This 272-nucleotide sequence from Anaerobacillus alkalidiazotrophicus belongs to the Rfam family "BsrG". On this family, see Saito et al., Gene 2008: "Novel small RNA-encoding genes in the intergenic regions of Bacillus subtilis". By type it is a small RNA. The family has 6 seed sequences and 614 matches in Rfam 15.1. Rfam's curators write: bsrE, bsrG and bsrH pair through intermolecular interactions with antisense sRNAs. They form type I toxin/antitoxin system that includes an mRNA encoding for a short, toxic peptide (bsrE, bsrG and bsrH) and an antitoxin that is comprised of an antisense RNA. bsrG encodes a 39-amino-acid toxin, and the 180 nucleotide antisense sRNA called SR4 acts as the antitoxin (they overlap by 123 nucleotides). SR4 interaction with the 3'UTR of bsrG RNA promotes bsrG degradation and inhibits its translation. Rfam links the family to the GO terms autolysis and toxin activity.
[Rfam]
RNA sequence: UAACUACAUAACGCAAGGUGGCGGCUGAACUCCCUGAACGAAAGGGGGGAGGCAUAUGACGACAUAUCAAGCAUUUAGCUUAUUUGCGCAAUUUAGUUUAGUGUUAAUAGCGCUACUUACACUAAUUGUAACUAUUGUCGUCAAUUUAAACAAAAAGAAAUAGCCACCCUGCCAGCCAAGUGAGGUGAGCUAUUUCAAUAAGCGAUAUCCAACUGGUCAGCCGCUCUUCAAGCGGCAUGUAGUUGCAUUGCCUGAGCGUUGCUGCGCUCAGG
Numbered sequence: 001u002a003a004c005u006a007c008a009u010a011a012c013g014c015a016a017g018g019u020g021g022c023g024g025c026u027g028a029a030c031u032c033c034c035u036g037a038a039c040g041a042a043a044g045g046g047g048g049g050a051g052g053c054a055u056a057u058g059a060c061g062a063c064a065u066a067u068c069a070a071g072c073a074u075u076u077a078g079c080u081u082a083u084u085u086g087c088g089c090a091a092u093u094u095a096g097u098u099u100a101g102u103g104u105u106a107a108u109a110g111c112g113c114u115a116c117u118u119a120c121a122c123u124a125a126u127u128g129u130a131a132c133u134a135u136u137g138u139c140g141u142c143a144a145u146u147u148a149a150a151c152a153a154a155a156a157g158a159a160a161u162a163g164c165c166a167c168c169c170u171g172c173c174a175g176c177c178a179a180g181u182g183a184g185g186u187g188a189g190c191u192a193u194u195u196c197a198a199u200a201a202g203c204g205a206u207a208u209c210c211a212a213c214u215g216g217u218c219a220g221c222c223g224c225u226c227u228u229c230a231a232g233c234g235g236c237a238u239g240u241a242g243u244u245g246c247a248u249u250g251c252c253u254g255a256g257c258g259u260u261g262c263u264g265c266g267c268u269c270a271g272g
Stems, first nucleotide, its partner, number of pairs: 001245005007239003012215001014175001017172001020169002023165004030049001031047005058142007071085001073084001094134004186204002221235004251272009